[Rfam]
RNA sequence: UGCCACCUAAAAGUGGUGGACUUAUGCGGUACCCACCGCGUAGCAGGCUAGAACCUGCAUCGGACUUCUAACAAGGAGAAAACAAAUG
Numbered sequence: 001u002g003c004c005a006c007c008u009a010a011a012a013g014u015g016g017u018g019g020a021c022u023u024a025u026g027c028g029g030u031a032c033c034c035a036c037c038g039c040g041u042a043g044c045a046g047g048c049u050a051g052a053a054c055c056u057g058c059a060u061c062g063g064a065c066u067u068c069u070a071a072c073a074a075g076g077a078g079a080a081a082a083c084a085a086a087u088g
Stems, first nucleotide, its partner, number of pairs: 001018006023042007043058004

A member of the RNA family "freshwater-2 RNA", 88 nucleotides long.
It is annotated as a cis-regulatory element.
The family's consensus secondary structure is taken from published work.
It is one of the family's seed sequences.